[Rfam]
RNA sequence: GGACAUUUGGAAGGUUUGCUUUCUGGGUUACAAGCGGAGAACCUUGGUUUCUCGACUAUUACCCAGGGAAAAGUCCCCGGACCCGUGGCAGAAAGUGCCCUGGCGUGAAGCCAGUAACGGCUCGUGUCUCCCCGUCAGAGCCAAGAAGCUCGCUGAGAGCAGAGCUCGGGGAAUACUAGUCGUCUUUGUCAUGCACGAGAGAAAUGCAGGCGUGCGCGCGCACUGUGUAACAGAACGGGGCUCACUCUCUGAAUGCUC
Numbered sequence: 001g002g003a004c005a006u007u008u009g010g011a012a013g014g015u016u017u018g019c020u021u022u023c024u025g026g027g028u029u030a031c032a033a034g035c036g037g038a039g040a041a042c043c044u045u046g047g048u049u050u051c052u053c054g055a056c057u058a059u060u061a062c063c064c065a066g067g068g069a070a071a072a073g074u075c076c077c078c079g080g081a082c083c084c085g086u087g088g089c090a091g092a093a094a095g096u097g098c099c100c101u102g103g104c105g106u107g108a109a110g111c112c113a114g115u116a117a118c119g120g121c122u123c124g125u126g127u128c129u130c131c132c133c134g135u136c137a138g139a140g141c142c143a144a145g146a147a148g149c150u151c152g153c154u155g156a157g158a159g160c161a162g163a164g165c166u167c168g169g170g171g172a173a174u175a176c177u178a179g180u181c182g183u184c185u186u187u188g189u190c191a192u193g194c195a196c197g198a199g200a201g202a203a204a205u206g207c208a209g210g211c212g213u214g215c216g217c218g219c220g221c222a223c224u225g226u227g228u229a230a231c232a233g234a235a236c237g238g239g240g241c242u243c244a245c246u247c248u249c250u251g252a253a254u255g256c257u258c
Base pairs, nucleotide, nucleotide: 002258003257004255005254006253007252008251009250010249011248014211015210016209017208018207019206022067023066024065025064026063027062028061037053038052039051040050041049043047072242073241075240076239077238078237087099088098089097090096100114101113102112103111104110117183118182119181121179122178124176125175126174131171132170133169138167139166140165141164148160149159150158151157213227214226215225216224